Shown here is a 92-nucleotide RNA sequence from Streptomyces roseifaciens, a member of the family "dauA ncRNA motif". Rfam describes the family as follows. dauA ncRNA motif was reported as a strong cis regulatory motif candidate, with potential to be a cis regulatory riboswitch type, it have been identified in genomes of the genus Streptomyces. Gene Ontology term of the family: regulation of gene expression. The source organism's lineage runs through Bacteria, Bacillati, Actinomycetota, Kitasatosporales and Streptomyces. For this family Rfam cites "The discovery of novel noncoding RNAs in 50 bacterial genomes" (Narunsky et al., Nucleic Acids Res, 2024). Rfam's curators put it in the seed alignment.
[Rfam]
RNA sequence: AAGCCAUGACCCGGGAGCAGAGCAGGAAGUGCCGAAGCCCGGCACCCUCACCUGGCACUGCCCCGGCCGGUCUCCUGAACCGAGGCGCCAUG
Numbered sequence: 001a002a003g004c005c006a007u008g009a010c011c012c013g014g015g016a017g018c019a020g021a022g023c024a025g026g027a028a029g030u031g032c033c034g035a036a037g038c039c040c041g042g043c044a045c046c047c048u049c050a051c052c053u054g055g056c057a058c059u060g061c062c063c064c065g066g067c068c069g070g071u072c073u074c075c076u077g078a079a080c081c082g083a084g085g086c087g088c089c090a091u092g
Stems, first nucleotide, its partner, number of pairs: 003086003011066004016059002021053002026049002029045006068082003